[Rfam]
A member of the RNA family "T-box leader" from Sutcliffiella cohnii, 241 nucleotides long.
RNA sequence: AAUAUUACGUUGAAAAGGAAUAGUAGUGGACGAAAACGAGCAUAGAGAGUUGACGGAUGGUGGAAGUCAACAACGAGCGUUCAUGAACUCGCCUUGGAGUAGCAAGUGUGAAACCUACUUACAGGAAGUAAUGCUUUGCCGUAUCGUCCGCGUUAAGGAUUUGAGCGAGCAUAGAUACAUUCUAUGUUAAUGUGGGUGGUACCGCGGGAAGUGUAUAUACAUAAUACCUCUCGUCCCUUUU
Numbered sequence: 001a002a003u004a005u006u007a008c009g010u011u012g013a014a015a016a017g018g019a020a021u022a023g024u025a026g027u028g029g030a031c032g033a034a035a036a037c038g039a040g041c042a043u044a045g046a047g048a049g050u051u052g053a054c055g056g057a058u059g060g061u062g063g064a065a066g067u068c069a070a071c072a073a074c075g076a077g078c079g080u081u082c083a084u085g086a087a088c089u090c091g092c093c094u095u096g097g098a099g100u101a102g103c104a105a106g107u108g109u110g111a112a113a114c115c116u117a118c119u120u121a122c123a124g125g126a127a128g129u130a131a132u133g134c135u136u137u138g139c140c141g142u143a144u145c146g147u148c149c150g151c152g153u154u155a156a157g158g159a160u161u162u163g164a165g166c167g168a169g170c171a172u173a174g175a176u177a178c179a180u181u182c183u184a185u186g187u188u189a190a191u192g193u194g195g196g197u198g199g200u201a202c203c204g205c206g207g208g209a210a211g212u213g214u215a216u217a218u219a220c221a222u223a224a225u226a227c228c229u230c231u232c233g234u235c236c237c238u239u240u241u
Stems, first nucleotide, its partner, number of pairs: 007100002015095004026084006038074001049071006103138002105135005140152003168188007194237003204234005
It scores 122 bits against the family's covariance model. NCBI's taxonomy places the organism under Bacteria, Bacillati, Bacillota, Caryophanales, Sutcliffiella. By type it is a cis-regulatory leader.